U4 spliceosomal RNA: a 141-nucleotide RNA from Ceutorhynchus assimilis. The organism belongs to Ceutorhynchus, within Eukaryota. By type it is a spliceosomal small nuclear RNA.
RNA sequence: AGCUUUGCGCAGUGGCAUUAUCGUAACCAAUGAGGUUUAUCCGAGGUGCGAUUAUUGCUAGUUGAAAACUUUAACCAAUACCCCGCCACGUGCACGUGAAAAACCGUGCGCUAAGGCAAUUUUUGUGAGCAUCUGUAGAGG
Numbered sequence: 001a002g003c004u005u006u007g008c009g010c011a012g013u014g015g016c017a018u019u020a021u022c023g024u025a026a027c028c029a030a031u032g033a034g035g036u037u038u039a040u041c042c043g044a045g046g047u048g049c050g051a052u053u054a055u056u057g058c059u060a061g062u063u064g065a066a067a068a069c070u071u072u073a074a075c076c077a078a079u080a081c082c083c084c085g086c087c088a089c090g091u092g093c094a095c096g097u098g099a100a101a102a103a104c105c106g107u108g109c110g111c112u113a114a115g116g117c118a119a120u121u122u123u124u125g126u127g128a129g130c131a132u133c134u135g136u137a138g139a140g141g
Stems, first nucleotide, its partner, number of pairs: 020052005026047003034042002085117003090111007130141001132139002